Notes: Rfam assigns this 122-nucleotide RNA sequence from Gossypium lobatum to the family "MIR7504 microRNA precursor family". Lineage of the source: Eukaryota > Tracheophyta > Spermatophyta > Malvaceae > Gossypium. It scores 85 bits against the family's covariance model. The family's consensus secondary structure was predicted with RNAalifold.

[Rfam]
RNA sequence: AAAAGGAGAAUGACAAAUCAGAUUUUUACUUUUGAUUUUCAGCUUUUUUUCCUGAAAAUAUUCAAAUCCAAUUAAAAAUGCUAAAAAUAAGAAGGAAAAAUCUUAUUUAUUAUUCUUUUUUU
Numbered sequence: 001a002a003a004a005g006g007a008g009a010a011u012g013a014c015a016a017a018u019c020a021g022a023u024u025u026u027u028a029c030u031u032u033u034g035a036u037u038u039u040c041a042g043c044u045u046u047u048u049u050u051c052c053u054g055a056a057a058a059u060a061u062u063c064a065a066a067u068c069c070a071a072u073u074a075a076a077a078a079u080g081c082u083a084a085a086a087a088u089a090a091g092a093a094g095g096a097a098a099a100a101u102c103u104u105a106u107u108u109a110u111u112a113u114u115c116u117u118u119u120u121u122u
Stems, first nucleotide, its partner, number of pairs: 001122013015108004020103008029094005035088005041082002045078004
Dot-bracket structure: (((((((((((((.((((.((((((((.(((((.(((((.((..((((..........................))))..)).))))).))))).)))))))).)))).)))))))))))))